[Rfam]
Shown here is a 169-nucleotide RNA from Streptomyces abyssalis, a member of the family "Streptomyces RNA 1601". The source organism's lineage runs through Bacteria, Bacillati, Actinomycetota, Streptomycetaceae and Streptomyces. Identified by deep sequencing of transcriptome at the end of exponential growth phase.
RNA sequence: AUCGACCGGCUGGAGAGUACGUGACUUCAGCCCGCAAGUGGAGGCUCCGAACUCCCACCUGACGGCCCGGCGGGCCGCGGGUCAACGGUCAGGCUGCGCCCCGCGGAUGACGCGUCGGUGCUCCAGGUCUUUGAGGAGCCACCGCCUGUGUCCGUCAGGGGCGUUUUCU
Numbered sequence: 001a002u003c004g005a006c007c008g009g010c011u012g013g014a015g016a017g018u019a020c021g022u023g024a025c026u027u028c029a030g031c032c033c034g035c036a037a038g039u040g041g042a043g044g045c046u047c048c049g050a051a052c053u054c055c056c057a058c059c060u061g062a063c064g065g066c067c068c069g070g071c072g073g074g075c076c077g078c079g080g081g082u083c084a085a086c087g088g089u090c091a092g093g094c095u096g097c098g099c100c101c102c103g104c105g106g107a108u109g110a111c112g113c114g115u116c117g118g119u120g121c122u123c124c125a126g127g128u129c130u131u132u133g134a135g136g137a138g139c140c141a142c143c144g145c146c147u148g149u150g151u152c153c154g155u156c157a158g159g160g161g162c163g164u165u166u167u168c169u
Stems, first nucleotide, its partner, number of pairs: 004090005012028002030082004035061002038058004042053002063077006098162005104154003111150003114146001116144003120139005
It scores 115 bits against the family's covariance model. By type it is a small RNA.